Nucleotides: 052
Stems, first nucleotide, its partner, number of pairs: 016044007025035004
Number, partner (000 for none) and nucleotide at each position: 001000a002000c003000u004000u005000g006000c007000g008000g009000g010000g011000a012000u013000c014000g015000c016044c017043c018042c019041c020040c021039g022038u023000c024000a025035g026034c027033g028032c029000g030000u031000u032028g033027c034026g035025c036000c037000c038022a039021c040020g041019g042018g043017g044016g045000c046000a047000u048000u049000c050000g051000u052000g
The record is a 52-nucleotide sequence from Paracoccus methylarcula, which matches "ffh sRNA" in Rfam. It is annotated as a small RNA. NCBI's taxonomy places the organism under Bacteria, Pseudomonadati, Alphaproteobacteria, Paracoccaceae, Paracoccus. The base pairs follow the family's consensus structure, which is taken from published work. It scores 67 bits against the family's covariance model.